[Rfam]
RNA sequence: GCCAAAUGAUGUAGAAGUGAUGACAUAGCACGCUGUGCAAAGAUGACUUUCAUCUAUCACCCAAUACUGAUGGCC
Numbered sequence: 001g002c003c004a005a006a007u008g009a010u011g012u013a014g015a016a017g018u019g020a021u022g023a024c025a026u027a028g029c030a031c032g033c034u035g036u037g038c039a040a041a042g043a044u045g046a047c048u049u050u051c052a053u054c055u056a057u058c059a060c061c062c063a064a065u066a067c068u069g070a071u072g073g074c075c
Stems, first nucleotide, its partner, number of pairs: 001074004028038004
Shown here is a 75-nucleotide RNA sequence from Python bivittatus, a member of the family "Small nucleolar RNA SNORD83". Gene Ontology terms of the family: RNA processing and nucleolus. Pairs were carried over by alignment from the consensus structure, which was predicted with PFOLD. It is annotated as a C/D-box small nucleolar RNA. It scores 59 bits against the family's covariance model.